[Rfam]
This 115-nucleotide sequence from Cloeon dipterum belongs to the Rfam family "U4atac minor spliceosomal RNA". About the family: U4atac is an essential component of the minor U12-type spliceosome complex which is required for removal of the rarer class of eukaryotic introns (AT-AC, U12-type). A reference for the family is Lorkovic et al. (2005), "Evolutionary conservation of minor U12-type spliceosome between plants and humans", RNA.
RNA sequence: CUCUUCCUUGUCUUGGGGAGCGUGAAUGUCCAAUGAACGUCAAGUGAGGGCAUUUUUGCUGACACCAAACAUUUAACCCCGCAUCCACUUCAAGUGAGGUGCAAUUUUUGGGAGC
Dot-bracket structure: ....(((((.....)))))(((..(((((((.....((.....))..)))))))..))).....................((((((.........).))))).............

NCBI's taxonomy places the organism under Eukaryota, Mandibulata, Hexapoda, Insecta, Cloeon. The family's consensus secondary structure is taken from published work.